A member of the RNA family "mir-24 microRNA precursor family" from Scophthalmus maximus, 69 nucleotides long. Pairs were carried over by alignment from the consensus structure, which was predicted with RNAalifold. The organism belongs to Scophthalmus, within Eukaryota. A reference for the family is Lagos-Quintana et al. (2001), "Identification of novel genes coding for small expressed RNAs", Science. About the family: This family represents the microRNA (miRNA) mir-24 family. miRNAs are transcribed as ~70nt precursors (modelled here) and subsequently processed by the Dicer enzyme to give a ~22nt product. In this case the mature sequence comes from the 3' arm of the precursor. The extents of the hairpin precursors are not generally known and are estimated based on hairpin prediction.

RNA sequence: CCCUCUUGUGCCUCCUGAGCUGACAGCAGUUUGAUCAAAGCCACUGGCUCAGUUCAGCAGGAACAGGAG
Dot-bracket structure: ..((((.((.(((.(((((((((...((((............))))..))))))))).))).)).))))